[Rfam]
RNA sequence: ACACAAGGAAGGAGGUGGUCCGCGAAAUUGAUAGCUUCAUGGACAUGUGAGGUGGCUGCGCGCUAGCUGCAUUGGCUUCCGAAGAGCUGGCGUCAACGCGCUGGCGAAUUCCCCGCAGUCACCCGGCCCCCGAGCUUCCGGUCUUGUCCAACCAGGCGCAUGCUCGGGGGCCGCUCCAU
Number, nucleotide and partner (000 for none) at each position: 001a000002c000003a000004c000005a000006a000007g000008g000009a000010a000011g000012g000013a000014g000015g059016u058017g057018g056019u055020c000021c000022g000023c000024g000025a000026a000027a000028u000029u000030g000031a000032u000033a000034g000035c000036u000037u000038c000039a000040u000041g000042g000043a000044c000045a000046u000047g000048u000049g000050a000051g000052g000053u000054g000055g019056c018057u017058g016059c015060g000061c106062g105063c104064u103065a102066g101067c100068u000069g099070c098071a000072u096073u000074g094075g093076c092077u000078u000079c000080c000081g000082a000083a000084g000085a000086g000087c000088u000089g000090g000091c000092g076093u075094c074095a000096a072097c000098g070099c069100g067101c066102u065103g064104g063105c062106g061107a000108a000109u000110u000111c000112c000113c000114c000115g000116c000117a000118g000119u000120c000121a000122c000123c000124c173125g172126g171127c170128c169129c168130c167131c166132g165133a164134g163135c162136u000137u156138c155139c000140g153141g152142u151143c000144u000145u000146g000147u000148c000149c000150a000151a142152c141153c140154a000155g138156g137157c000158g000159c000160a000161u000162g135163c134164u133165c132166g131167g130168g129169g128170g127171c126172c125173g124174c000175u000176c000177c000178a000179u000
RNA: Actinobacteria sRNA Ms_IGR-5
Organism: Mycobacterium haemophilum